[Rfam]
Background
Rfam assigns this 303-nucleotide RNA sequence to the family "Nuclear RNase P". Rfam's curators write: Ribonuclease P (RNase P) is a ubiquitous endoribonuclease, found in archaea, bacteria and eukarya as well as chloroplasts and mitochondria. Its best characterised activity is the generation of mature 5'-ends of tRNAs by cleaving the 5'-leader elements of precursor-tRNAs. Cellular RNase Ps are ribonucleoproteins. RNA from bacterial RNase Ps retains its catalytic activity in the absence of the protein subunit, i.e. it is a ribozyme. By type it is a ribozyme. The sequence is in the family's curated seed alignment.

RNA sequence: AGCGGAAGGAAGCUCACUGUAGAGGUCACCCACUGAGUGCUCGUCACUCGCCAACACCUCGGGGAAGGUCUGAGACAGGAGCCACUCGCUGUCCUAGCAGGACAUCAUCUGAAUGAUGAGCGAGUGCACAGAAAAUCGGGUCACGCGCGCGAUUCUCGCAGCAGACGUUGAUGCUCGCACACAUUCAGCGGAUCAACUGAUGCGACGCGCGCAGACUUGGAAACACUCGCGGCUGGCGAAUGAGUGCGAUGUGUGAGCUAGCAUAACAUGCUAGAACCCAAUUCAGACUACUCUCCCUCCGCU
Numbered sequence: 001a002g003c004g005g006a007a008g009g010a011a012g013c014u015c016a017c018u019g020u021a022g023a024g025g026u027c028a029c030c031c032a033c034u035g036a037g038u039g040c041u042c043g044u045c046a047c048u049c050g051c052c053a054a055c056a057c058c059u060c061g062g063g064g065a066a067g068g069u070c071u072g073a074g075a076c077a078g079g080a081g082c083c084a085c086u087c088g089c090u091g092u093c094c095u096a097g098c099a100g101g102a103c104a105u106c107a108u109c110u111g112a113a114u115g116a117u118g119a120g121c122g123a124g125u126g127c128a129c130a131g132a133a134a135a136u137c138g139g140g141u142c143a144c145g146c147g148c149g150c151g152a153u154u155c156u157c158g159c160a161g162c163a164g165a166c167g168u169u170g171a172u173g174c175u176c177g178c179a180c181a182c183a184u185u186c187a188g189c190g191g192a193u194c195a196a197c198u199g200a201u202g203c204g205a206c207g208c209g210c211g212c213a214g215a216c217u218u219g220g221a222a223a224c225a226c227u228c229g230c231g232g233c234u235g236g237c238g239a240a241u242g243a244g245u246g247c248g249a250u251g252u253g254u255g256a257g258c259u260a261g262c263a264u265a266a267c268a269u270g271c272u273a274g275a276a277c278c279c280a281a282u283u284c285a286g287a288c289u290a291c292u293c294u295c296c297c298u299c300c301g302c303u
Base pairs, nucleotide, nucleotide: 001303002302003301004300008296009295010294013257014256015255016254017253022060023059024058025057035049036048037047038046039045070286071285072284073283074282080234081233082232083231090104091103092102093101094100105119106118107117108116109115120230121229122228123227124226125225126224140216141215142214258274259273260272261271262270263269264268